Overview: The family of this 69-nucleotide RNA from Immundisolibacter cernigliae is "int-alpA RNA".
[Rfam]
RNA sequence: GCCGCGCCCAGGCCGACGGGGCGAAAAGCCGGACACCUUCGCUGGCUUGGUACGGUGCCUUUAUGAAGG
Numbered sequence: 001g002c003c004g005c006g007c008c009c010a011g012g013c014c015g016a017c018g019g020g021g022c023g024a025a026a027a028g029c030c031g032g033a034c035a036c037c038u039u040c041g042c043u044g045g046c047u048u049g050g051u052a053c054g055g056u057g058c059c060u061u062u063a064u065g066a067a068g069g
Base pairs, nucleotide, nucleotide: 001056002055003054004053006051007050008049011022013020014019028046029045030044031043032042036069037068038067039066040065

A search with the family's covariance model found it, with a score of 43 bits. Pairs were carried over by alignment from the consensus structure, which is taken from published work. Rfam describes the family as follows. Acidobacteria (1 example), Planctomycetes (1 example), Proteobacteria.